[Rfam]
RNA: CRISPR RNA direct repeat element
RNA sequence: GUUGCCAUCCCUCCAGGGGUGAUCGGCGAC
Numbered sequence: 001g002u003u004g005c006c007a008u009c010c011c012u013c014c015a016g017g018g019g020u021g022a023u024c025g026g027c028g029a030c
Base pairs, nucleotide, nucleotide: 001030002029003028004027005026007020008019009018010017011016